[Rfam]
RNA sequence: GUGGCGGUGCUUUCCCAGCGGGCGUCGGCGUCGAGAAGGGCGUUCUCCCCGAACCGUUCGCCGUCGGCGAGUACGCCGACGGCGACCUCGUCCCCGUACUUGCCGACAGACUUCUGGUUGAUCCUGCCGUGGGCGAUCAGGUGGAGCUCCCCGGCGGGGGUUCCGCGCUCGACCAGCACCUCUCCGGCGCGGAAGUCACGCUGGGCGCACCGGCCGGCGAUCUCGGUCAGCACCUCCACGUCGUCGAAGCCGCGCAGCAGGGCCAGUUCGCCGAGUUCCCGGGGGAUCACCCGGACGUCAGAGCCGUCCUGGACGAACUCGAUACGUCCGUCUCCGACGGUGUAGGUCAGGCGGCGGUUCACGCGAUAGGUGCCGCCCUUGGUCUCCACCCAGGGGAGCAUCCGCAGCAGCCAGCGAGAGGUGAUCUCCUGCAUCUGCGGGGCGGACUUGGUCGUGGUGGCGAGGUUGCGGGCAGCUGCGGUGCCCAGGCUGGACUGCCGGGGUGGCUCCAG
Numbered sequence: 001g002u003g004g005c006g007g008u009g010c011u012u013u014c015c016c017a018g019c020g021g022g023c024g025u026c027g028g029c030g031u032c033g034a035g036a037a038g039g040g041c042g043u044u045c046u047c048c049c050c051g052a053a054c055c056g057u058u059c060g061c062c063g064u065c066g067g068c069g070a071g072u073a074c075g076c077c078g079a080c081g082g083c084g085a086c087c088u089c090g091u092c093c094c095c096g097u098a099c100u101u102g103c104c105g106a107c108a109g110a111c112u113u114c115u116g117g118u119u120g121a122u123c124c125u126g127c128c129g130u131g132g133g134c135g136a137u138c139a140g141g142u143g144g145a146g147c148u149c150c151c152c153g154g155c156g157g158g159g160g161u162u163c164c165g166c167g168c169u170c171g172a173c174c175a176g177c178a179c180c181u182c183u184c185c186g187g188c189g190c191g192g193a194a195g196u197c198a199c200g201c202u203g204g205g206c207g208c209a210c211c212g213g214c215c216g217g218c219g220a221u222c223u224c225g226g227u228c229a230g231c232a233c234c235u236c237c238a239c240g241u242c243g244u245c246g247a248a249g250c251c252g253c254g255c256a257g258c259a260g261g262g263c264c265a266g267u268u269c270g271c272c273g274a275g276u277u278c279c280c281g282g283g284g285g286a287u288c289a290c291c292c293g294g295a296c297g298u299c300a301g302a303g304c305c306g307u308c309c310u311g312g313a314c315g316a317a318c319u320c321g322a323u324a325c326g327u328c329c330g331u332c333u334c335c336g337a338c339g340g341u342g343u344a345g346g347u348c349a350g351g352c353g354g355c356g357g358u359u360c361a362c363g364c365g366a367u368a369g370g371u372g373c374c375g376c377c378c379u380u381g382g383u384c385u386c387c388a389c390c391c392a393g394g395g396g397a398g399c400a401u402c403c404g405c406a407g408c409a410g411c412c413a414g415c416g417a418g419a420g421g422u423g424a425u426c427u428c429c430u431g432c433a434u435c436u437g438c439g440g441g442g443c444g445g446a447c448u449u450g451g452u453c454g455u456g457g458u459g460g461c462g463a464g465g466u467u468g469c470g471g472g473c474a475g476c477u478g479c480g481g482u483g484c485c486c487a488g489g490c491u492g493g494a495c496u497g498c499c500g501g502g503g504u505g506g507c508u509c510c511a512g
Stems, first nucleotide, its partner, number of pairs: 006390004014382002018328001021325001025322004031316002038310003047303001049301001051299002057230002060227004066111001068109001075103001077102003082097003117222001119220001122217002127212001129210002135206001137204004141199003146196002152192001154188002157185004161178001165174001235295003240290002243287003250282003254278001256277003260271001262269001329342004351379001353377005360372003391431007399423003403418001405416001407415001437476002440473001443470002446467001447465003451461002477511002480508003484503003488499003